A member of the RNA family "Small nucleolar RNA SNORD47" from Phrynocephalus forsythii, 75 nucleotides long. Rfam links the family to the GO terms nucleolus and RNA processing. NCBI's taxonomy places the organism under Eukaryota, Opisthokonta, Tetrapoda, Agamidae, Phrynocephalus.
[Rfam]
RNA sequence: AACCUGUGAUGAAAGUUGAUUCUGCCAGAUGAAUGCUUGUGAUAUCAACACCAUUCCGUUCCAUUUACUGAGGUU
Number, nucleotide and partner (000 for none) at each position: 001a075002a074003c073004c072005u000006g000007u000008g000009a000010u000011g000012a000013a000014a000015g000016u000017u000018g000019a000020u000021u000022c000023u000024g000025c000026c000027a000028g000029a000030u000031g000032a000033a000034u000035g000036c000037u000038u000039g000040u000041g000042a000043u000044a000045u000046c000047a000048a000049c000050a000051c000052c000053a000054u000055u000056c000057c000058g000059u000060u000061c000062c000063a000064u000065u000066u000067a000068c000069u000070g000071a000072g004073g003074u002075u001